[Rfam]
Record summary: Rfam assigns this 241-nucleotide sequence from Hwanghaeella grinnelliae to the family "permuted transfer-messenger RNA". Gene Ontology term of the family: RNA catabolic process. Rfam classes the family as a non-coding RNA gene. NCBI's taxonomy places the organism under Bacteria, Pseudomonadati, Pseudomonadota, Alphaproteobacteria, Hwanghaeella. It scores 139 bits against the family's covariance model.

RNA sequence: GACGCUAAAGGGUGGCAUGGAAUAAGCGCAGCGGACCCGGGGGCGGUACCCGGCGCCUCCACCAUGAGAACCGAUUUAUCCUGAUAACUCAGUGUUUUAGGGUCGGUUCUGAUGAUGGGGGCGAAAUAGGAUCGACGCGUGUAGUAAAGAUGCUUUCUGCGUUCGGUAUGGUAUCCGCCGUUAUCGGGCCACGGCUAUAAAUGCCAAUGAUAACGAAGAGAUGGUUGCCGUCGCCGCGUAA
Numbered sequence: 001g002a003c004g005c006u007a008a009a010g011g012g013u014g015g016c017a018u019g020g021a022a023u024a025a026g027c028g029c030a031g032c033g034g035a036c037c038c039g040g041g042g043g044c045g046g047u048a049c050c051c052g053g054c055g056c057c058u059c060c061a062c063c064a065u066g067a068g069a070a071c072c073g074a075u076u077u078a079u080c081c082u083g084a085u086a087a088c089u090c091a092g093u094g095u096u097u098u099a100g101g102g103u104c105g106g107u108u109c110u111g112a113u114g115a116u117g118g119g120g121g122c123g124a125a126a127u128a129g130g131a132u133c134g135a136c137g138c139g140u141g142u143a144g145u146a147a148a149g150a151u152g153c154u155u156u157c158u159g160c161g162u163u164c165g166g167u168a169u170g171g172u173a174u175c176c177g178c179c180g181u182u183a184u185c186g187g188g189c190c191a192c193g194g195c196u197a198u199a200a201a202u203g204c205c206a207a208u209g210a211u212a213a214c215g216a217a218g219a220g221a222u223g224g225u226u227g228c229c230g231u232c233g234c235c236g237c238g239u240a241a
Base pairs, nucleotide, nucleotide: 001163002162003161004160005159015153016152017151018150027141028140029139031138032137033136037053038052039051040050041049054123055122056121057120058119059118060117164180165179166178167177